[Rfam]
RNA sequence: GUUUGUAAAAGGCAAGUAUGGCGAAAUCCAUACACGCAAAACUUCCGACCUAAGGCGUAUGCUAUGGUAGCGGGGUUGCAGAA
Numbered sequence: 001g002u003u004u005g006u007a008a009a010a011g012g013c014a015a016g017u018a019u020g021g022c023g024a025a026a027u028c029c030a031u032a033c034a035c036g037c038a039a040a041a042c043u044u045c046c047g048a049c050c051u052a053a054g055g056c057g058u059a060u061g062c063u064a065u066g067g068u069a070g071c072g073g074g075g076u077u078g079c080a081g082a083a
Base pairs, nucleotide, nucleotide: 012037013036017032018031019030020029021028040077041076042075043074045073046072047071048068049067050066055062056061
Dot-bracket structure: ...........((...(((((......)))))...))..((((.((((((....((....))...)))..)))))))......
Rfam assigns this 83-nucleotide RNA sequence from Thalassotalea marina to the family "c-di-GMP-I riboswitch aptamer".
NCBI's taxonomy places the organism under Bacteria, Pseudomonadota, Alteromonadales, Colwelliaceae, Thalassotalea.